Annotation:
The record is a 54-nucleotide RNA from Albula goreensis, which matches "UnaL2 LINE 3' element" in Rfam. A search with the family's covariance model found it, with a score of 62 bits. The base pairs follow the family's consensus structure, which is taken from published work. Rfam classes the family as a cis-regulatory element. The eel long interspersed element (LINE) UnaL2 and its partner short interspersed element (SINE) share a conserved 3' tail containing a stem-loop that is critical for their retrotransposition. Presumably, the first step of retrotransposition is the recognition of their 3' tails by UnaL2-encoded reverse transcriptase.
RNA sequence: UGAUUGGUGGAUUGUAAGUCGCUCUGGAUAAGAGUGUCUGCUAAAUGCCUAUAA
Numbered sequence: 001u002g003a004u005u006g007g008u009g010g011a012u013u014g015u016a017a018g019u020c021g022c023u024c025u026g027g028a029u030a031a032g033a034g035u036g037u038c039u040g041c042u043a044a045a046u047g048c049c050u051a052u053a054a
Base pairs, nucleotide, nucleotide: 013043014041015040016039020036021035022034023033024032025031